[Rfam]
RNA: mir-199 microRNA precursor family
Organism: Cricetulus griseus
RNA sequence: CUUCCGAUCUCCCAGUGUUUAGACUACCUGUUCAGGACUCCCAAAUUGUACAGUAGCCUGCACAUUGGUUAGAGAUC
Numbered sequence: 001c002u003u004c005c006g007a008u009c010u011c012c013c014a015g016u017g018u019u020u021a022g023a024c025u026a027c028c029u030g031u032u033c034a035g036g037a038c039u040c041c042c043a044a045a046u047u048g049u050a051c052a053g054u055a056g057c058c059u060g061c062a063c064a065u066u067g068g069u070u071a072g073a074g075a076u077c
Base pairs, nucleotide, nucleotide: 012068013067014066015065016064017063018062020060021059022058024056025055026054028053029052030051031050033048034047